[Rfam]
RNA sequence: GCCUCACGUCUGAAAGGACGGCGGCAUUGCCGUAGCAGGGUCUCAGCAGAGGUCAUAGUAGUUGGUGGUAGGGCCGGGAAGGCUUGACCCCGCCGACGAAGGAC
Numbered sequence: 001g002c003c004u005c006a007c008g009u010c011u012g013a014a015a016g017g018a019c020g021g022c023g024g025c026a027u028u029g030c031c032g033u034a035g036c037a038g039g040g041u042c043u044c045a046g047c048a049g050a051g052g053u054c055a056u057a058g059u060a061g062u063u064g065g066u067g068g069u070a071g072g073g074c075c076g077g078g079a080a081g082g083c084u085u086g087a088c089c090c091c092g093c094c095g096a097c098g099a100a101g102g103a104c
Stems, first nucleotide, its partner, number of pairs: 001025002004023001007020005042051003052104003061097008
Group II catalytic intron D1-D4-1: a 104-nucleotide sequence from Massilia violaceinigra. The literature on the family includes a 2001 paper in Trends Genet by Bonen and Vogel, "The ins and outs of group II introns". Rfam 15.1 lists 2,508 matches to the family in 1,144 species. The match comes from Rfam's covariance-model search (38 bits).